The family of this 89-nucleotide RNA sequence from Thiosulfatimonas sediminis is "sRNA-Xcc1". It is annotated as a small RNA. For this family Rfam cites "sRNA-Xcc1, an integron-encoded transposon- and plasmid-transferred trans-acting sRNA, is under the positive control of the key virulence regulators HrpG and HrpX of Xanthomonas campestris pathovar campestris" (Chen et al., RNA Biol, 2011).

Nucleotides: 089
Base pairs, nucleotide, nucleotide: 001081002080003079004078005077006076007075008074014049015048016047017046019044020043029039030038031037051066052065053064054063055062
Number, partner (000 for none) and nucleotide at each position: 001081g002080g003079a004078c005077g006076g007075g008074u009000u010000g011000a012000g013000a014049g015048g016047a017046c018000u019044u020043a021000a022000u023000a024000c025000a026000a027000g028000a029039c030038c031037c032000u033000u034000u035000a036000c037031g038030g039029g040000g041000a042000a043020u044019a045000a046017g047016u048015c049014c050000c051066g052065c053064c054063g055062u056000c057000u058000a059000g060000u061000g062055g063054c064053g065052g066051u067000a068000g069000u070000u071000g072000a073000u074008g075007c076006c077005c078004g079003u080002c081001c082000a083000c084000c085000u086000g087000u088000u089000u